[Rfam]
Rfam assigns this 87-nucleotide sequence from Neogobius melanostomus to the family "mir-146 microRNA precursor family".
A search with the family's covariance model found it, with a score of 55 bits.
The source organism's lineage runs through Eukaryota, Actinopteri, Clupeocephala, Neoteleostei and Neogobius.
Its family is annotated with RISC complex and miRNA-mediated post-transcriptional gene silencing in the Gene Ontology.
For this family Rfam cites "Kaposi's sarcoma-associated herpesvirus expresses an array of viral microRNAs in latently infected cells" (Cai et al., Proc Natl Acad Sci U S A, 2005).
RNA sequence: UUAGGGGCUCUGCCCUGAGAACUGUAUUCCAUAGAUGGUCUUCAGGUUUCAUCUAUGGGCUCAGUUCUUUUGGUAUAGCACCAUUAU
Number, nucleotide and partner (000 for none) at each position: 001u000002u000003a000004g000005g000006g000007g000008c078009u077010c000011u075012g074013c073014c000015c000016u000017g000018a068019g067020a066021a065022c064023u063024g062025u000026a000027u000028u000029c000030c000031a000032u000033a054034g053035a052036u051037g000038g000039u000040c000041u000042u000043c000044a000045g000046g000047u000048u000049u000050c000051a036052u035053c034054u033055a000056u000057g000058g000059g000060c000061u000062c024063a023064g022065u021066u020067c019068u018069u000070u000071u000072g000073g013074u012075a011076u000077a009078g008079c000080a000081c000082c000083a000084u000085u000086a000087u000